6S / SsrS RNA: a 206-nucleotide RNA from Leptolyngbya sp. Cla-17.
It scores 83 bits against the family's covariance model.

RNA sequence: GGUUUACUACGGCGUUGGUGACUACCAAUAAUGUUUUAUGAUCUAUGCCUUCUGAAUACGGGAACUUACAAAGUCUGGCGGCAGUAGACCGGGCAUGUAACCAGAAAUGGGCAUGUAAUCCCGGAAACUUAAAGCACAGGCAGUUGGUACCCACCUGGUCUCGCACCAGGUCAAAAACUGAGGUAAGACGGCGUUGCGGUAAACUC
Numbered sequence: 001g002g003u004u005u006a007c008u009a010c011g012g013c014g015u016u017g018g019u020g021a022c023u024a025c026c027a028a029u030a031a032u033g034u035u036u037u038a039u040g041a042u043c044u045a046u047g048c049c050u051u052c053u054g055a056a057u058a059c060g061g062g063a064a065c066u067u068a069c070a071a072a073g074u075c076u077g078g079c080g081g082c083a084g085u086a087g088a089c090c091g092g093g094c095a096u097g098u099a100a101c102c103a104g105a106a107a108u109g110g111g112c113a114u115g116u117a118a119u120c121c122c123g124g125a126a127a128c129u130u131a132a133a134g135c136a137c138a139g140g141c142a143g144u145u146g147g148u149a150c151c152c153a154c155c156u157g158g159u160c161u162c163g164c165a166c167c168a169g170g171u172c173a174a175a176a177a178c179u180g181a182g183g184u185a186a187g188a189c190g191g192c193g194u195u196g197c198g199g200u201a202a203a204c205u206c
Stems, first nucleotide, its partner, number of pairs: 002204007010196006018189002035177003039173006060152003064148003068144002073141005078135002084128002089124005
The base pairs follow the family's consensus structure, which is taken from published work. A reference for the family is Wassarman and Storz (2000), "6S RNA regulates E. coli RNA polymerase activity", Cell.